[Rfam]
RNA: small Cajal body-specific RNA 18
Organism: Enhydra lutris
RNA sequence: UGGUCAAUGAUGACACGACCACUGAGCAAUCGGAGUUCUAGGAACCAGAUGAUGGGAGUGUGUGCUAAGAAUGGACUGAGACCG
Numbered sequence: 001u002g003g004u005c006a007a008u009g010a011u012g013a014c015a016c017g018a019c020c021a022c023u024g025a026g027c028a029a030u031c032g033g034a035g036u037u038c039u040a041g042g043a044a045c046c047a048g049a050u051g052a053u054g055g056g057a058g059u060g061u062g063u064g065c066u067a068a069g070a071a072u073g074g075a076c077u078g079a080g081a082c083c084g
Stems, first nucleotide, its partner, number of pairs: 002083004038048002041045001